The record is a 97-nucleotide sequence from Grus americana, which matches "Vault RNA" in Rfam. Rfam 15.1 lists 2,873 matches to the family in 431 species. Taxonomically the source falls in Grus (Eukaryota, Teleostomi, Dinosauria, Gruiformes). Rfam describes the family as follows. This family of RNAs are found as part of the enigmatic vault ribonucleoprotein complex. The complex consists of a major vault protein (MVP), two minor vault proteins (VPARP and TEP1), and several small untranslated RNA molecules. It has been suggested that the vault complex is involved in drug resistance. Pairs were carried over by alignment from the consensus structure, which is taken from published work. For this family Rfam cites "Evolution of Vault RNAs" (Stadler et al., Mol Biol Evol, 2009).
RNA sequence: GGGCCAGCUAUAGCCCAGGGGUUACUUUGGUGUUUCACAAGUUUGUUGUGUCUCACCCCGCAAGGGGUUCGAUCCCGCAGGCACCUCUGGCCCAUCU
Numbered sequence: 001g002g003g004c005c006a007g008c009u010a011u012a013g014c015c016c017a018g019g020g021g022u023u024a025c026u027u028u029g030g031u032g033u034u035u036c037a038c039a040a041g042u043u044u045g046u047u048g049u050g051u052c053u054c055a056c057c058c059c060g061c062a063a064g065g066g067g068u069u070c071g072a073u074c075c076c077g078c079a080g081g082c083a084c085c086u087c088u089g090g091c092c093c094a095u096c097u
Stems, first nucleotide, its partner, number of pairs: 002092006013082003018078001020076002027072004